[Rfam]
RNA sequence: GGUCAAUGAUGAACAGUAAAAGGUCUGAUUGCCCAGGUGCCCCUGCUUCCCAGCAGUCCCCAGCCGCCUCUCUCCCACAGGCUCCAGGUGUGCUGUUGUGGGCCAGAGGGCUGCUGACACUGUGUGAUGUCCCCAUCCCGCCUUCCCUGAUGAGCCUGGGUGAGGCACGUGGUCGGCAUCCAACAGCAUAGUCACUGAGGGGUCUGGUGUUGGGUGCAGGCGUCUGCGGUGUGAUCUGCCCUUUGCAGCUGAGACC
Numbered sequence: 001g002g003u004c005a006a007u008g009a010u011g012a013a014c015a016g017u018a019a020a021a022g023g024u025c026u027g028a029u030u031g032c033c034c035a036g037g038u039g040c041c042c043c044u045g046c047u048u049c050c051c052a053g054c055a056g057u058c059c060c061c062a063g064c065c066g067c068c069u070c071u072c073u074c075c076c077a078c079a080g081g082c083u084c085c086a087g088g089u090g091u092g093c094u095g096u097u098g099u100g101g102g103c104c105a106g107a108g109g110g111c112u113g114c115u116g117a118c119a120c121u122g123u124g125u126g127a128u129g130u131c132c133c134c135a136u137c138c139c140g141c142c143u144u145c146c147c148u149g150a151u152g153a154g155c156c157u158g159g160g161u162g163a164g165g166c167a168c169g170u171g172g173u174c175g176g177c178a179u180c181c182a183a184c185a186g187c188a189u190a191g192u193c194a195c196u197g198a199g200g201g202g203u204c205u206g207g208u209g210u211u212g213g214g215u216g217c218a219g220g221c222g223u224c225u226g227c228g229g230u231g232u233g234a235u236c237u238g239c240c241c242u243u244u245g246c247a248g249c250u251g252a253g254a255c256c
Stems, first nucleotide, its partner, number of pairs: 001256004034238005041214003045210002057202004061116004066111002074102007081094001082092001124181001126180006140166005146160004

Notes:
A member of the RNA family "Small Cajal body specific RNA 6" from Oryctolagus cuniculus, 256 nucleotides long. For this family Rfam cites "Cajal body-specific small nuclear RNAs: a novel class of 2'-O-methylation and pseudouridylation guide RNAs" (Darzacq et al., EMBO J, 2002). Rfam classes the family as a small Cajal body RNA. Rfam describes the family as follows. U88 is small Cajal body specific RNA (scaRNA). scaRNAs are a novel class of small nuclear RNAs which localise to the Cajal bodies. U88 is found associated with both fibrillarin and Gar1p and co-localises with coilin in Cajal bodies.